[Rfam]
This 73-nucleotide RNA sequence from Hevea brasiliensis belongs to the Rfam family "Small nucleolar RNA snoR60".
RNA sequence: GUGCAAGUGAUGAAAUUCUACUCGGAUUCCCCUUCAAGACUUAUGGGUGAUGUAGACACGAGUUUCUGAUGCA
Numbered sequence: 001g002u003g004c005a006a007g008u009g010a011u012g013a014a015a016u017u018c019u020a021c022u023c024g025g026a027u028u029c030c031c032c033u034u035c036a037a038g039a040c041u042u043a044u045g046g047g048u049g050a051u052g053u054a055g056a057c058a059c060g061a062g063u064u065u066c067u068g069a070u071g072c073a
Stems, first nucleotide, its partner, number of pairs: 002073004
Lineage of the source: Eukaryota > Spermatophyta > Gunneridae > fabids > Hevea. For this family Rfam cites "Fibrillarin genes encode both a conserved nucleolar protein and a novel small nucleolar RNA involved in ribosomal RNA methylation in Arabidopsis thaliana" (Barneche et al., J Biol Chem, 2000). It is annotated as a C/D-box small nucleolar RNA.